[Rfam]
RNA sequence: AAUACAACUUCAGAGGCCAUAGCAGAAAGCAUUCACUUUAUAGCCUUUGCCAGAUUUGUACAUUUCUGCACAUUCUGCU
Numbered sequence: 001a002a003u004a005c006a007a008c009u010u011c012a013g014a015g016g017c018c019a020u021a022g023c024a025g026a027a028a029g030c031a032u033u034c035a036c037u038u039u040a041u042a043g044c045c046u047u048u049g050c051c052a053g054a055u056u057u058g059u060a061c062a063u064u065u066c067u068g069c070a071c072a073u074u075c076u077g078c079u
Stems, first nucleotide, its partner, number of pairs: 013047005021079007029041001031039001051068004057062001
A member of the RNA family "Mammalian CPEB3 ribozyme" from Geotrypetes seraphini, 79 nucleotides long. Rfam links the family to the GO term RNA nuclease activity. It scores 38 bits against the family's covariance model. The source organism's lineage runs through Eukaryota, Metazoa, Eumetazoa, Gnathostomata and Geotrypetes. About the family: The mammalian CPEB3 ribozyme is a self cleaving RNA located in the second intron of the CPEB3 gene which belongs to a family of genes regulating messenger RNA polyadenylation. This ribozyme is highly conserved and found only in mammals. The base pairs follow the family's consensus structure, which is taken from published work.